[Rfam]
RNA sequence: UCACGCACCUUGGGGCGCCGUAAGGCUGAGAGACGCGAGUCAACCCAUUGAACCUGCCCCGGAUAAUGCCGGCGAAGGAAACGGUGACUGAUGUUUUU
Numbered sequence: 001u002c003a004c005g006c007a008c009c010u011u012g013g014g015g016c017g018c019c020g021u022a023a024g025g026c027u028g029a030g031a032g033a034c035g036c037g038a039g040u041c042a043a044c045c046c047a048u049u050g051a052a053c054c055u056g057c058c059c060c061g062g063a064u065a066a067u068g069c070c071g072g073c074g075a076a077g078g079a080a081a082c083g084g085u086g087a088c089u090g091a092u093g094u095u096u097u098u
Stems, first nucleotide, its partner, number of pairs: 006086004011047004017026003033040002053078003059072004
This 98-nucleotide sequence from an Olavius algarvensis Gamma 3 endosymbiont belongs to the Rfam family "TPP riboswitch aptamer (THI element)". Vitamin B(1) in its active form thiamin pyrophosphate (TPP) is an essential coenzyme that is synthesised by coupling of pyrimidine and thiazole moieties in bacteria. The previously detected thiamin-regulatory element, thi box was extended, resulting in a new, highly conserved RNA secondary structure, the THI element, which is widely distributed in eubacteria and also occurs in some archaea. Analysis of operon structures identified a large number of new candidate thiamin-regulated genes, mostly transporters, in various prokaryotic organisms. The THI element is a riboswitch that directly binds to TPP to regulate gene expression through a variety of mechanisms in archaea, bacteria and eukaryotes. through a variety of mechanisms in archaea, bacteria and eukaryotes. Tandem TPP riboswitches have been reported where both TPP riboswitches respond independently to TPP. The structure of TPP riboswitch has been reported for Escherichia coli and Arabidopsis thaliana. For this family Rfam cites "Thiamine derivatives bind messenger RNAs directly to regulate bacterial gene expression" (Winkler et al., Nature, 2002). Pairs were carried over by alignment from the consensus structure, which is taken from published work. NCBI's taxonomy places the organism under Bacteria, Pseudomonadati, Pseudomonadota, Gammaproteobacteria.